[Rfam]
RNA sequence: GGCUCAUCCAGAGGGGUAGAGGGAACGGCCCGACGACACCCCGGCAACCGGCGGCGCGGAUCUGAACGCGCAAGACCGGUGCCAAUUCCGACCCGCCGAGAGGCGGGGAAGAUGAGGA
Numbered sequence: 001g002g003c004u005c006a007u008c009c010a011g012a013g014g015g016g017u018a019g020a021g022g023g024a025a026c027g028g029c030c031c032g033a034c035g036a037c038a039c040c041c042c043g044g045c046a047a048c049c050g051g052c053g054g055c056g057c058g059g060a061u062c063u064g065a066a067c068g069c070g071c072a073a074g075a076c077c078g079g080u081g082c083c084a085a086u087u088c089c090g091a092c093c094c095g096c097c098g099a100g101a102g103g104c105g106g107g108g109a110a111g112a113u114g115a116g117g118a
Stems, first nucleotide, its partner, number of pairs: 003116006013042005021031003026090003043083004048079002050076001087110001092107006
Background:
Rfam assigns this 118-nucleotide RNA from Actinomycetospora corticicola to the family "SAM riboswitch aptamer (S box leader)". The source organism's lineage runs through Bacteria, Bacillati, Pseudonocardiales, Pseudonocardiaceae and Actinomycetospora.